[Rfam]
RNA sequence: AUCGCUUCUUCGGCUUAUUAGCUAAGAUCAAAGUGUAGUAUCUGCUCUUAUCGUAUUAACCUACGGUAUACACUCGAAUGAGUGUAAUAAAGGUUAUAUGAUUUUUGGAACCUAGGAAAGGGCUUUCUCCGACUUUCUAAGGGUCGUCCCGGCGUUGCACUGCUGCCGGGCUCGGCCCAGUCCCC
Numbered sequence: 001a002u003c004g005c006u007u008c009u010u011c012g013g014c015u016u017a018u019u020a021g022c023u024a025a026g027a028u029c030a031a032a033g034u035g036u037a038g039u040a041u042c043u044g045c046u047c048u049u050a051u052c053g054u055a056u057u058a059a060c061c062u063a064c065g066g067u068a069u070a071c072a073c074u075c076g077a078a079u080g081a082g083u084g085u086a087a088u089a090a091a092g093g094u095u096a097u098a099u100g101a102u103u104u105u106u107g108g109a110a111c112c113u114a115g116g117a118a119a120g121g122g123c124u125u126u127c128u129c130c131g132a133c134u135u136u137c138u139a140a141g142g143g144u145c146g147u148c149c150c151g152g153c154g155u156u157g158c159a160c161u162g163c164u165g166c167c168g169g170g171c172u173c174g175g176c177c178c179a180g181u182c183c184c185c
Base pairs, nucleotide, nucleotide: 007027008026009025012023013022014021015020049068050067051066052065053064054063070085071084072083073082074081075080114138115137116136117135118134120129121128122127141178142177143176144175145174146173148170149169150168151167152166153165
Dot-bracket structure: ......(((..((((....)))).))).....................((((((........)))))).((((((....))))))............................(((((.(((....)))....)))))..((((((.((((((...........))))))..)))))).......